[Rfam]
RNA sequence: UUUAUUUCUCAGGGCAAGGUGAAAUUCCUUACUGGUGGUAACUAUACUUAAUAGAAGUCCACGAGCGCUUUAUUUUAUAAAGGUCAGCAGAUUUGGUGCAAAUCCAAAACCAACAGUUAAAGUCUGGAUGGAAGAGAAUAUAA
Numbered sequence: 001u002u003u004a005u006u007u008c009u010c011a012g013g014g015c016a017a018g019g020u021g022a023a024a025u026u027c028c029u030u031a032c033u034g035g036u037g038g039u040a041a042c043u044a045u046a047c048u049u050a051a052u053a054g055a056a057g058u059c060c061a062c063g064a065g066c067g068c069u070u071u072a073u074u075u076u077a078u079a080a081a082g083g084u085c086a087g088c089a090g091a092u093u094u095g096g097u098g099c100a101a102a103u104c105c106a107a108a109a110c111c112a113a114c115a116g117u118u119a120a121a122g123u124c125u126g127g128a129u130g131g132a133a134g135a136g137a138a139u140a141u142a143a
Base pairs, nucleotide, nucleotide: 006138007137008136009135010134017029018028019027031123032122033112034111035062036061037060038059057110058109065088066087092108093107094106095105096104114126115125116124
RNA: FMN riboswitch aptamer (RFN element)